MIR398 microRNA precursor family: a 116-nucleotide RNA from Papaver somniferum.
RNA sequence: GGAGGAUCAACAGGAGCAUCCUGAGAUCACAUGAGAAAACACCACAUAGAAACAAUUUUUUUUUUUUUGUUAUGGUGAAUGUUCAUGUGUUCUCAGGUCGCCCCUGCUGGACUUUC
Numbered sequence: 001g002g003a004g005g006a007u008c009a010a011c012a013g014g015a016g017c018a019u020c021c022u023g024a025g026a027u028c029a030c031a032u033g034a035g036a037a038a039a040c041a042c043c044a045c046a047u048a049g050a051a052a053c054a055a056u057u058u059u060u061u062u063u064u065u066u067u068u069g070u071u072a073u074g075g076u077g078a079a080u081g082u083u084c085a086u087g088u089g090u091u092c093u094c095a096g097g098u099c100g101c102c103c104c105u106g107c108u109g110g111a112c113u114u115u116c
Base pairs, nucleotide, nucleotide: 007110008109011106012105013104014103016101017100023094024093025092026091028089029088030087031086032085033084034083035082
Lineage of the source: Eukaryota > Euphyllophyta > Spermatophyta > Magnoliopsida > Papaver.
Gene Ontology terms of the family: RISC complex and miRNA-mediated post-transcriptional gene silencing.